[Rfam]
RNA sequence: AGCAGCCCUCGGCGGCCUGGGUGGGGCGGGCGACCGUGCCCGUCCCGGGGCCGCGCUAGGCACACGCG
Numbered sequence: 001a002g003c004a005g006c007c008c009u010c011g012g013c014g015g016c017c018u019g020g021g022u023g024g025g026g027c028g029g030g031c032g033a034c035c036g037u038g039c040c041c042g043u044c045c046c047g048g049g050g051c052c053g054c055g056c057u058a059g060g061c062a063c064a065c066g067c068g
Stems, first nucleotide, its partner, number of pairs: 002067002007060003011056001012054007020046002025044008
RNA: mir-4449 microRNA precursor family